[Rfam]
RNA: MIR7504 microRNA precursor family
RNA sequence: AAUGAGAAAAUGACAAAUCAAAUUUUUCCUCUUGAUUUUCAACUUUUUCCGCUUGAAAAAAAUUUCAAAUCCAACUAAAAAUGUUAAAAAUCAGGAGGAAAAAUCUUCUUUAUUGUUCUUCCAUU
Numbered sequence: 001a002a003u004g005a006g007a008a009a010a011u012g013a014c015a016a017a018u019c020a021a022a023u024u025u026u027u028c029c030u031c032u033u034g035a036u037u038u039u040c041a042a043c044u045u046u047u048u049c050c051g052c053u054u055g056a057a058a059a060a061a062a063u064u065u066c067a068a069a070u071c072c073a074a075c076u077a078a079a080a081a082u083g084u085u086a087a088a089a090a091u092c093a094g095g096a097g098g099a100a101a102a103a104u105c106u107u108c109u110u111u112a113u114u115g116u117u118c119u120u121c122c123a124u125u
Stems, first nucleotide, its partner, number of pairs: 001125004006120002009117005015111003020106001022104006029097011041085002045081004